[Rfam]
RNA sequence: UGGCGGACGGCGUGAGCCCGGGGGUUCUGGGCUGCAGUGAGCUGUGCUGAGCGGGCGUCCGCGCUAAGGCCGGCAUCGAUAUGGUGGUCCCGGGGGAGCCAGGGGCCACCAGGUCGCCUAAGGAGGGGUGAACCGGCCCAGGUCGGAGACGGAGCAGGUCAAAGCUCCCGUGCCGCUCGGUAGCGGGAUGGCGCCUGUGAACAGUCGCUGUAGCACGGCCCGGGCAAGAGAGCGGGACCCA
Number, nucleotide and partner (000 for none) at each position: 001u241002g240003g239004c000005g000006g000007a000008c235009g000010g233011c232012g000013u230014g000015a000016g225017c224018c223019c222020g221021g220022g219023g000024g000025u000026u000027c218028u217029g216030g000031g214032c213033u212034g211035c210036a209037g208038u207039g206040a000041g205042c204043u203044g202045u201046g000047c199048u000049g000050a000051g198052c197053g196054g195055g194056c193057g192058u191059c187060c186061g000062c185063g184064c183065u182066a181067a000068g178069g177070c000071c175072g174073g173074c172075a171076u170077c116078g115079a114080u113081a000082u111083g110084g109085u108086g107087g106088u105089c104090c103091c102092g000093g100094g099095g000096g000097a000098g000099c094100c093101a000102g091103g090104g089105g088106c087107c086108a085109c084110c083111a082112g000113g080114u079115c078116g077117c123118c122119u000120a000121a000122g118123g117124a000125g168126g167127g166128g165129u164130g000131a000132a000133c000134c000135g160136g159137c158138c157139c000140a000141g000142g000143u152144c151145g150146g000147a000148g000149a000150c145151g144152g143153a000154g000155c000156a000157g138158g137159u136160c135161a000162a000163a000164g129165c128166u127167c126168c125169c000170g076171u075172g074173c073174c072175g071176c000177u069178c068179g000180g000181u066182a065183g064184c063185g062186g060187g059188a000189u000190g000191g058192c057193g056194c055195c054196u053197g052198u051199g047200a000201a045202c044203a043204g042205u041206c039207g038208c037209u036210g035211u034212a033213g032214c031215a000216c029217g028218g027219c022220c021221c020222g019223g018224g017225c016226a000227a000228g000229a000230g013231a000232g011233c010234g000235g008236g000237a000238c000239c003240c002241a001
Description
The record is a 241-nucleotide RNA sequence from Buceros rhinoceros, which matches "Metazoan signal recognition particle RNA" in Rfam. Its Rfam clan is "SRP clan". The literature on the family includes a 2002 paper in Curr Opin Struct Biol by Wild et al., "Towards the structure of the mammalian signal recognition particle". Rfam classes the family as a non-coding RNA gene.